[Rfam]
RNA: MIR394 microRNA precursor family
Organism: Senna tora
RNA sequence: CUCUCAGAGUUUGUUGGCAUUCUGUCCACCUCCUCUCCUCUCAUCUCUUAUUAUAUGGAUCGGAGGUGGGCAUACUGCCAAUUCUGCUCUGCUCG
Numbered sequence: 001c002u003c004u005c006a007g008a009g010u011u012u013g014u015u016g017g018c019a020u021u022c023u024g025u026c027c028a029c030c031u032c033c034u035c036u037c038c039u040c041u042c043a044u045c046u047c048u049u050a051u052u053a054u055a056u057g058g059a060u061c062g063g064a065g066g067u068g069g070g071c072a073u074a075c076u077g078c079c080a081a082u083u084c085u086g087c088u089c090u091g092c093u094c095g
Stems, first nucleotide, its partner, number of pairs: 014081006023072011